[Rfam]
RNA sequence: AGAUUCGCUUCCAGCUUGUUAUCGGAGCCACGAACGAGUCUUACUGACUCAUAUAGCUCUGGGGAAAGUCCCCGAACCCUCUGAUGGAAAGCAGUCGCCCUAGAAAUGGUGUUGUCCUAUUCCCUUUCCUAACUGCAGCUGUGAAGGUUCAUCCUGAGUUGUGAGGAAUUUAGGAGUACGGAAAAUGUUCAAUAUAACUCAAGUUAUACAAGCAGGACUGAUGUGUUCUUACGGAAUGGGGCUUAUUGGAAGUGGAUC
Numbered sequence: 001a002g003a004u005u006c007g008c009u010u011c012c013a014g015c016u017u018g019u020u021a022u023c024g025g026a027g028c029c030a031c032g033a034a035c036g037a038g039u040c041u042u043a044c045u046g047a048c049u050c051a052u053a054u055a056g057c058u059c060u061g062g063g064g065a066a067a068g069u070c071c072c073c074g075a076a077c078c079c080u081c082u083g084a085u086g087g088a089a090a091g092c093a094g095u096c097g098c099c100c101u102a103g104a105a106a107u108g109g110u111g112u113u114g115u116c117c118u119a120u121u122c123c124c125u126u127u128c129c130u131a132a133c134u135g136c137a138g139c140u141g142u143g144a145a146g147g148u149u150c151a152u153c154c155u156g157a158g159u160u161g162u163g164a165g166g167a168a169u170u171u172a173g174g175a176g177u178a179c180g181g182a183a184a185a186u187g188u189u190c191a192a193u194a195u196a197a198c199u200c201a202a203g204u205u206a207u208a209c210a211a212g213c214a215g216g217a218c219u220g221a222u223g224u225g226u227u228c229u230u231a232c233g234g235a236a237u238g239g240g241g242c243u244u245a246u247u248g249g250a251a252g253u254g255g256a257u258c
Stems, first nucleotide, its partner, number of pairs: 002258010014213006022062007036050005066244003070241004083096002085093002097112002100109003114179002124174003136161004146154002215228004
Record summary
RNase MRP: a 258-nucleotide RNA from Trichonephila inaurata. Taxonomically the source falls in Trichonephila inaurata (Eukaryota, Bilateria, Panarthropoda, Entelegynae). The family's RNA type in Rfam is ribozyme.